[Rfam]
RNA sequence: CAUACUCUGAUGAAUAUAACUAUUUUCUGACAUCUCUUAUGAACCGUUGUGAUUCAAUACAAUUUGUGUAAUUUCUGAAGCC
Numbered sequence: 001c002a003u004a005c006u007c008u009g010a011u012g013a014a015u016a017u018a019a020c021u022a023u024u025u026u027c028u029g030a031c032a033u034c035u036c037u038u039a040u041g042a043a044c045c046g047u048u049g050u051g052a053u054u055c056a057a058u059a060c061a062a063u064u065u066g067u068g069u070a071a072u073u074u075c076u077g078a079a080g081c082c
Stems, first nucleotide, its partner, number of pairs: 003080001039050004
Dot-bracket structure: ..(...................................((((....)))).............................)..

This 82-nucleotide sequence from Drosophila persimilis belongs to the Rfam family "Small nucleolar RNA Me28S-Gm3255". The match comes from Rfam's covariance-model search (73 bits). The family's consensus secondary structure was predicted with PFOLD. Taxonomically the source falls in Sophophora (Eukaryota, Bilateria, Protostomia, Endopterygota). Gene Ontology terms of the family: nucleolus and RNA processing. A reference for the family is Huang et al. (2005), "Genome-wide analyses of two families of snoRNA genes from Drosophila melanogaster, demonstrating the extensive utilization of introns for coding of snoRNAs", RNA. It is annotated as a C/D-box small nucleolar RNA.